Notes: This 160-nucleotide RNA sequence from Panthera tigris belongs to the Rfam family "Small nucleolar RNA SNORA72". The family's RNA type in Rfam is H/ACA-box small nucleolar RNA. Rfam 15.1 lists 1,541 matches to the family in 547 species. U72 is a member of the H/ACA class of snoRNAs. The snoRNA gene is located in intron 4 of the ribosomal L30 protein gene in human, mouse and chicken. Taxonomically the source falls in Panthera tigris (Eukaryota, Craniata, Felidae, Pantherinae).
RNA sequence: CUGCGAAUAUUCUCGCUGUUCUGAUUUUGUAAUAAUCAGGGCAGGCUAAACAUUCGCUAUAUUAAGACCAUGCAUGUGUCCCCAGACUUAGUAGACCGUGCAUGUGUCCCCAGACCUAGUUAUUUCCCUAGGUCUGGUUUUAUCAAUGCUGGUGAUAAAC
Number, nucleotide and partner (000 for none) at each position: 001c000002u000003g057004c056005g055006a000007a000008u000009a000010u000011u000012c000013u000014c000015g000016c044017u043018g042019u041020u040021c039022u038023g037024a036025u035026u034027u000028u000029g000030u000031a000032a000033u000034a026035a025036u024037c023038a022039g021040g020041g019042c018043a017044g016045g000046c000047u000048a000049a000050a000051c000052a000053u000054u000055c005056g004057c003058u000059a000060u000061a000062u000063u000064a000065a000066g000067a153068c152069c151070a150071u000072g149073c148074a000075u000076g000077u000078g000079u000080c000081c000082c137083c136084a135085g134086a133087c132088u131089u130090a129091g128092u000093a000094g000095a000096c000097c000098g000099u000100g000101c000102a000103u000104g000105u000106g000107u000108c000109c000110c000111c000112a000113g000114a000115c000116c000117u000118a000119g000120u000121u000122a000123u000124u000125u000126c000127c000128c091129u090130a089131g088132g087133u086134c085135u084136g083137g082138u000139u000140u000141u000142a000143u000144c000145a000146a000147u000148g073149c072150u070151g069152g068153u067154g000155a000156u000157a000158a000159a000160c000